[Rfam]
RNA sequence: CGACACCACCACGGGUGCCCGGUGAAAUUCCGGGCUGAGACGCCGUCACGGCGAACCGUCGAACCUGAUUCGGUUAGUACCGACGCUAGGGAGAAAACAUGAGCACAGG
Number, nucleotide and partner (000 for none) at each position: 001c000002g000003a000004c000005a000006c000007c000008a000009c000010c093011a059012c058013g057014g056015g000016u053017g035018c034019c033020c032021g031022g000023u000024g000025a000026a000027a000028u000029u000030c000031c021032g020033g019034g018035c017036u000037g000038a000039g000040a000041c000042g052043c051044c050045g049046u000047c000048a000049c045050g044051g043052c042053g016054a000055a000056c014057c013058g012059u011060c000061g000062a000063a000064c090065c089066u088067g087068a000069u000070u083071c082072g081073g080074u000075u000076a000077g000078u000079a000080c073081c072082g071083a070084c000085g000086c000087u067088a066089g065090g064091g000092a000093g010094a000095a000096a000097a000098c000099a000100u000101g000102a000103g000104c000105a000106c000107a000108g000109g000
Shown here is a 109-nucleotide RNA from Corynebacterium halotolerans, a member of the family "TPP riboswitch aptamer (THI element)". The match comes from Rfam's covariance-model search (57 bits). NCBI's taxonomy places the organism under Bacteria, Actinomycetota, Corynebacteriaceae, Corynebacterium, Corynebacterium halotolerans.